RNA sequence: AGACGGGUUAGGAUCCUCUACAGUACUGUACGGUGCUCUUAGUCACUGCCAUGUGGGACCUGGCCCCACAUAUCAUCCACACUACAGCACCAUACGGUACUGCAGAGGAUCUCAACCCCUC
Numbered sequence: 001a002g003a004c005g006g007g008u009u010a011g012g013a014u015c016c017u018c019u020a021c022a023g024u025a026c027u028g029u030a031c032g033g034u035g036c037u038c039u040u041a042g043u044c045a046c047u048g049c050c051a052u053g054u055g056g057g058a059c060c061u062g063g064c065c066c067c068a069c070a071u072a073u074c075a076u077c078c079a080c081a082c083u084a085c086a087g088c089a090c091c092a093u094a095c096g097g098u099a100c101u102g103c104a105g106a107g108g109a110u111c112u113c114a115a116c117c118c119c120u121c
Base pairs, nucleotide, nucleotide: 002121003120005118006117007116008115009114011112012111013110014109015108016107017106018105019104021102022101023100024099025098026097027096028095029094030093032091033090034089035088036087037086039084051071052070053069054068055067056066057065059063
RNA: MIR5084 microRNA precursor family